About this RNA: This 125-nucleotide RNA sequence from Chrysochloris asiatica belongs to the Rfam family "Small nucleolar RNA SNORA28". The source organism's lineage runs through Eukaryota, Eumetazoa, Sarcopterygii, Chrysochlorinae and Chrysochloris. Rfam links the family to the GO terms nucleolus and RNA processing. A search with the family's covariance model found it, with a score of 102 bits. The family has 26 seed sequences and 922 matches in Rfam 15.1. From the family's description: ACA28 is a member of the H/ACA class of snoRNA that guide the sites of modification of uridines to pseudouridines. The family's consensus secondary structure was predicted with RNAfold. The family is grouped with related families in Rfam's "SNORA28 clan".

RNA sequence: AAGCCACAUUCUGUGGCAGAUGAUCAAGACCAUCUGUCACAAUUUGUGCUUGCUAUAGCAAGAAAAUCUAACCUAUUUCAAUAUGUUCUUCUCAGUGAGACAAGCUGUUGUGUGGCUUGAACACU
Numbered sequence: 001a002a003g004c005c006a007c008a009u010u011c012u013g014u015g016g017c018a019g020a021u022g023a024u025c026a027a028g029a030c031c032a033u034c035u036g037u038c039a040c041a042a043u044u045u046g047u048g049c050u051u052g053c054u055a056u057a058g059c060a061a062g063a064a065a066a067u068c069u070a071a072c073c074u075a076u077u078u079c080a081a082u083a084u085g086u087u088c089u090u091c092u093c094a095g096u097g098a099g100a101c102a103a104g105c106u107g108u109u110g111u112g113u114g115g116c117u118u119g120a121a122c123a124c125u
Base pairs, nucleotide, nucleotide: 009048011046012041013040014039015038017036018035019034020033021032022031064118066117068115069114070113074112075111076110079107080106082104087100088099089098090097